[Rfam]
RNA sequence: GUGCAUCCAGUAGGAAUUGAACCUACGAAUUCGUCAAUUAUGAGUUGAGUACUUUAACCGUUUAGCCAUGGAUGC
Numbered sequence: 001g002u003g004c005a006u007c008c009a010g011u012a013g014g015a016a017u018u019g020a021a022c023c024u025a026c027g028a029a030u031u032c033g034u035c036a037a038u039u040a041u042g043a044g045u046u047g048a049g050u051a052c053u054u055u056a057a058c059c060g061u062u063u064a065g066c067c068a069u070g071g072a073u074g075c
Base pairs, nucleotide, nucleotide: 003075004074005073006072007071008070010026011025012024013023014022040069041068042067044066045065046064047063048062049061050060
Description
Rfam assigns this 75-nucleotide RNA sequence from Jatropha curcas to the family "Plastid-ycf2 5UTR RNA". Pairs were carried over by alignment from the consensus structure, which was predicted with LocARNA. NCBI's taxonomy places the organism under Eukaryota, Mesangiospermae, eudicotyledons, Crotonoideae, Jatropha. It scores 91 bits against the family's covariance model.